[Rfam]
RNA sequence: GCACAAUAUGAUGUCGAAUGUUAUCAUUCAGUUAUCCCUGUCUGAAAACUAUUGUUGAAAACUUACUAUUCUGAUUUGCGU
Numbered sequence: 001g002c003a004c005a006a007u008a009u010g011a012u013g014u015c016g017a018a019u020g021u022u023a024u025c026a027u028u029c030a031g032u033u034a035u036c037c038c039u040g041u042c043u044g045a046a047a048a049c050u051a052u053u054g055u056u057g058a059a060a061a062c063u064u065a066c067u068a069u070u071c072u073g074a075u076u077u078g079c080g081u
Stems, first nucleotide, its partner, number of pairs: 001081002004078003
About this RNA:
Small nucleolar RNA R38: an 81-nucleotide sequence from Alternaria burnsii. Rfam describes the family as follows. snoR38 is a C/D box small nucleolar RNA conserved across yeast, human, Arabidopsis and rice. It is encoded in the intron of elongation factor-1 gamma in both pombe and cerevisiae. snoR38 guides the methylation of 2'-O-ribose sites in 28S rRNA. Pairs were carried over by alignment from the consensus structure, which was predicted with PFOLD. Gene Ontology terms of the family: RNA processing and nucleolus. Lineage of the source: Eukaryota > Opisthokonta > Dikarya > dothideomyceta > Alternaria sect. Alternaria.